[Rfam]
RNA sequence: CCGGUUCCGGUUCACGCCCUGACGAGCACACCAGCCCAGGGCGACCCGGCGACC
Numbered sequence: 001c002c003g004g005u006u007c008c009g010g011u012u013c014a015c016g017c018c019c020u021g022a023c024g025a026g027c028a029c030a031c032c033a034g035c036c037c038a039g040g041g042c043g044a045c046c047c048g049g050c051g052a053c054c
Base pairs, nucleotide, nucleotide: 003054004053005052007049008048009047010046015043016042017041018040019039020038021037
The record is a 54-nucleotide RNA sequence from Micromonospora sonchi, which matches "L31-Actinobacteria ribosomal protein leader" in Rfam. Its Rfam clan is "Ribosomal Protein L31 Leader clan". It is annotated as a cis-regulatory leader.